Small nucleolar RNA SNORD83: a 76-nucleotide sequence from Austrofundulus limnaeus. NCBI's taxonomy places the organism under Eukaryota, Neopterygii, Neoteleostei, Ctenosquamata, Austrofundulus. It scores 48 bits against the family's covariance model. The base pairs follow the family's consensus structure, which was predicted with PFOLD. It is annotated as a C/D-box small nucleolar RNA.

RNA sequence: GCCACAUGAUGAGAGGAGUAGAUGCAGCAGCUCUCGGGCCGUGAUGACCGACAUCUAUCACCCUUUUCUGAUGGCU
Numbered sequence: 001g002c003c004a005c006a007u008g009a010u011g012a013g014a015g016g017a018g019u020a021g022a023u024g025c026a027g028c029a030g031c032u033c034u035c036g037g038g039c040c041g042u043g044a045u046g047a048c049c050g051a052c053a054u055c056u057a058u059c060a061c062c063c064u065u066u067u068c069u070g071a072u073g074g075c076u
Stems, first nucleotide, its partner, number of pairs: 001075004030039003